[Rfam]
RNA sequence: CAACUUGUGCAGAAGGGAAUGUGGGUGGCCGAUGAUUAACUAAUCUUAUUUUUACACGAUCAAUCACAUAGAACGAUCAAUGAAAAAUAGGAUUAGUCUGCCCAAUUUUUAUAUUUUGAAAAAAGUCUGUUUUAAACAGGCUUAUUGAUUCACGAAAUUUGUAGACUAAUCCUUCCAAUUAACAUUGGGAGGAUUUUUUG
Numbered sequence: 001c002a003a004c005u006u007g008u009g010c011a012g013a014a015g016g017g018a019a020u021g022u023g024g025g026u027g028g029c030c031g032a033u034g035a036u037u038a039a040c041u042a043a044u045c046u047u048a049u050u051u052u053u054a055c056a057c058g059a060u061c062a063a064u065c066a067c068a069u070a071g072a073a074c075g076a077u078c079a080a081u082g083a084a085a086a087a088u089a090g091g092a093u094u095a096g097u098c099u100g101c102c103c104a105a106u107u108u109u110u111a112u113a114u115u116u117u118g119a120a121a122a123a124a125g126u127c128u129g130u131u132u133u134a135a136a137c138a139g140g141c142u143u144a145u146u147g148a149u150u151c152a153c154g155a156a157a158u159u160u161g162u163a164g165a166c167u168a169a170u171c172c173u174u175c176c177a178a179u180u181a182a183c184a185u186u187g188g189g190a191g192g193a194u195u196u197u198u199u200g
Base pairs, nucleotide, nucleotide: 015110016109017108018107022104023103024102025101028098030096041095042094043093044092045091046090047089048088049087050086051085052084053083058078059077060076061075064072065071120146125141126140127139128138129137130136131135168195169194170193171192172191173190174189175188176187177186178185
This 200-nucleotide sequence from Neobacillus mesonae belongs to the Rfam family "Bacillus sRNA ncr1575". The family's consensus secondary structure is taken from published work. On this family, see Irnov et al., Nucleic Acids Res 2010: "Identification of regulatory RNAs in Bacillus subtilis". Rfam classes the family as a small RNA.